Shown here is a 132-nucleotide RNA from Mycetomoellerius zeteki, a member of the family "Small Cajal body specific RNA 8". About the family: scaRNAs are a specific class of small nuclear RNAs which localise to the Cajal bodies and guide the modification of RNA polymerase II transcribed spliceosomal RNAs U1, U2, U4, U5 and U12. U92 belong to the H/ACA box class of guide RNAs as it has the predicted hairpin-hinge-hairpin-tail structure, conserved H/ACA-box motifs and is found associated with GAR1. The match comes from Rfam's covariance-model search (61 bits).
RNA sequence: CGGGAGAAUGGAUACACGAGUCUCGACAAGAUAAGAUUACUCGUCACAUAAUUCUUCCAAAAAAAAAAAGUGCUUUCUGAUGACUGUAACUUGUGAAGUAUUAUUUUACAGACAGAUACGGAGCAUACAUUU
Numbered sequence: 001c002g003g004g005a006g007a008a009u010g011g012a013u014a015c016a017c018g019a020g021u022c023u024c025g026a027c028a029a030g031a032u033a034a035g036a037u038u039a040c041u042c043g044u045c046a047c048a049u050a051a052u053u054c055u056u057c058c059a060a061a062a063a064a065a066a067a068a069a070g071u072g073c074u075u076u077c078u079g080a081u082g083a084c085u086g087u088a089a090c091u092u093g094u095g096a097a098g099u100a101u102u103a104u105u106u107u108a109c110a111g112a113c114a115g116a117u118a119c120g121g122a123g124c125a126u127a128c129a130u131u132u
Stems, first nucleotide, its partner, number of pairs: 002058006016044004023034001070126007084111003089106001092103001